Overview: The record is a 96-nucleotide RNA sequence from Rhodofomes roseus, which matches "tRNA" in Rfam. Pairs were carried over by alignment from the consensus structure, which is taken from published work. Transfer RNA (tRNA) molecules are approximately 80 nucleotides in length. Their secondary structure includes four short double-helical elements and three loops (D, anti-codon, and T loops). Further hydrogen bonds mediate the characteristic L-shaped molecular structure. tRNAs have two regions of fundamental functional importance: the anti-codon, which is responsible for specific mRNA codon recognition, and the 3' end, to which the tRNAs corresponding amino acid is attached (by aminoacyl-tRNA synthetases). tRNAs cope with the degeneracy of the genetic code in two manners: having more than one tRNA (with a specific anti-codon) for a particular amino acid; and 'wobble' base-pairing, i.e. permitting non-standard base-pairing at the 3rd anti-codon position.
RNA sequence: GGUGGUGUGGCCGAGUUGGUCUAAGGCGUGGGAUUUAAGCUUGUCUUGAUUCCCCAUGGGCGUGAGUCCGCGCGAGUUCGAACCUCGCCGCCACCA
Number, nucleotide and partner (000 for none) at each position: 001g095002g094003u093004g092005g091006u090007g089008u000009g000010g027011c026012c025013g000014a000015g000016u000017u000018g000019g000020u000021c000022u000023a000024a000025g012026g011027c010028g000029u000030g054031g053032g052033a051034u000035u000036u000037a000038a000039g000040c000041u000042u000043g000044u000045c000046u000047u000048g000049a000050u000051u033052c032053c031054c030055c000056a000057u000058g000059g000060g000061c000062g000063u000064g000065a000066g000067u000068c000069c000070g000071c000072g088073c087074g086075a085076g084077u000078u000079c000080g000081a000082a000083c000084c076085u075086c074087g073088c072089c007090g006091c005092c004093a003094c002095c001096a000